A member of the RNA family "Small nucleolar RNA snR161" from Lachancea thermotolerans, 160 nucleotides long. The family is grouped with related families in Rfam's "SNORA44 clan". Rfam classes the family as an H/ACA-box small nucleolar RNA. The base pairs follow the family's consensus structure, which was predicted with WAR.

RNA sequence: CUAAACAAAUUAAACCAGUAUAUUUGGCUGUCCCCGUCUCUCCAACAUGGGGCCAGUCUCUCUAAGCUGGGAGAGUGAAUUUCAACCUUAGAACAACUUAAGUUCUGUUACGGAAGCUCUAAACGCCAAGCUCCAUGACACUAUUGUCGUUCAAACAAUC
Number, nucleotide and partner (000 for none) at each position: 001c000002u000003a000004a000005a000006c000007a000008a000009a000010u000011u000012a000013a000014a000015c070016c069017a068018g067019u066020a000021u000022a000023u000024u000025u000026g000027g057028c056029u055030g054031u000032c052033c051034c050035c049036g048037u000038c000039u000040c000041u000042c000043c000044a000045a000046c000047a000048u036049g035050g034051g033052g032053c000054c030055a029056g028057u027058c000059u000060c000061u000062c000063u000064a000065a000066g019067c018068u017069g016070g015071g000072a000073g000074a000075g000076u000077g000078a000079a000080u000081u000082u000083c000084a000085a000086c000087c000088u000089u000090a000091g152092a151093a150094c149095a000096a147097c146098u000099u000100a000101a000102g000103u000104u000105c000106u000107g139108u138109u137110a136111c000112g134113g133114a000115a132116g131117c130118u000119c000120u000121a000122a000123a000124c000125g000126c000127c000128a000129a000130g117131c116132u115133c113134c112135a000136u110137g109138a108139c107140a000141c000142u000143a000144u000145u000146g097147u096148c000149g094150u093151u092152c091153a000154a000155a000156c000157a000158a000159u000160c000
The organism belongs to Lachancea thermotolerans, within Eukaryota.